[Rfam]
RNA sequence: GCCUCGUUUCCGAAUAGUCACCGUAUGGUGCGCGUUCCCCGCAAUCGCGGGGAUAGGGAACGGGGCCGCU
Numbered sequence: 001g002c003c004u005c006g007u008u009u010c011c012g013a014a015u016a017g018u019c020a021c022c023g024u025a026u027g028g029u030g031c032g033c034g035u036u037c038c039c040c041g042c043a044a045u046c047g048c049g050g051g052g053a054u055a056g057g058g059a060a061c062g063g064g065g066c067c068g069c070u
Base pairs, nucleotide, nucleotide: 001066002065003064004063005062006061008059009058010057011056017033018032019030020029021028022027036053037052038051039050040049

Shown here is a 70-nucleotide sequence, a member of the family "DUF3800-IX RNA". It is one of the family's seed sequences.